RNA: mir-147 microRNA precursor family
RNA sequence: UAUGUAUUUAGUGUAGCAUUUCUGCAUAGACUAGAUUAUGGAAACCAGUGUAUAGAAAUGCUUCUGCUGUAUGUUUA
Number, nucleotide and partner (000 for none) at each position: 001u077002a076003u000004g074005u073006a072007u071008u000009u069010a068011g067012u066013g065014u000015a062016g000017c060018a059019u058020u057021u056022c055023u054024g053025c000026a051027u050028a049029g000030a000031c048032u047033a000034g000035a000036u000037u000038a000039u000040g000041g000042a000043a000044a000045c000046c000047a032048g031049u028050g027051u026052a000053u024054a023055g022056a021057a020058a019059u018060g017061c000062u015063u000064c000065u013066g012067c011068u010069g009070u000071a007072u006073g005074u004075u000076u002077a001